[Rfam]
RNA sequence: GCUGUGACAUGAUGUAAACAAAAGGCCGAAUUGUAGUGCCCCUGCCAGGCAGUUUGUUCUCGGUGCGGGGGCGCGUUGACAAAAACUAGACCGAAGCGUUUAUCUGAUCUAAGC
Numbered sequence: 001g002c003u004g005u006g007a008c009a010u011g012a013u014g015u016a017a018a019c020a021a022a023a024g025g026c027c028g029a030a031u032u033g034u035a036g037u038g039c040c041c042c043u044g045c046c047a048g049g050c051a052g053u054u055u056g057u058u059c060u061c062g063g064u065g066c067g068g069g070g071g072c073g074c075g076u077u078g079a080c081a082a083a084a085a086c087u088a089g090a091c092c093g094a095a096g097c098g099u100u101u102a103u104c105u106g107a108u109c110u111a112a113g114c
Base pairs, nucleotide, nucleotide: 001114002113003112006109007108014104025034026033035100036099037098038097042093044091046089048087049086052074053073055071057069058068059067076085